[Rfam]
Nucleotides: 088
Base pairs, nucleotide, nucleotide: 005051006050007049008048009047010046011045012044015041016040017076018075019074020073026037027036028035029034065083066082068080069079
Number, partner (000 for none) and nucleotide at each position: 001000u002000g003000g004000c005051c006050g007049u008048g009047u010046u011045g012044c013000a014000a015041c016040u017076g018075g019074c020073g021000a022000u023000g024000a025000g026037g027036u028035g029034g030000g031000a032000c033000a034029c035028c036027a037026c038000c039000g040016g041015g042000g043000a044012g045011u046010a047009a048008c049007a050006c051005g052000a053000g054000c055000g056000a057000a058000g059000a060000c061000c062000u063000c064000a065083c066082g067000a068080u069079c070000g071000u072000a073020c074019g075018c076017c077000u078000g079069g080068g081000a082066c083065g084000a085000g086000a087000g088000g

Overview
The record is an 88-nucleotide sequence from Arthrobacter sp. ERGS1:01, which matches "ZMP/ZTP riboswitch aptamer (pfl RNA motif)" in Rfam. Rfam links the family to the GO terms regulation of purine nucleotide biosynthetic process and one-carbon metabolic process. The base pairs follow the family's consensus structure, which is taken from published work.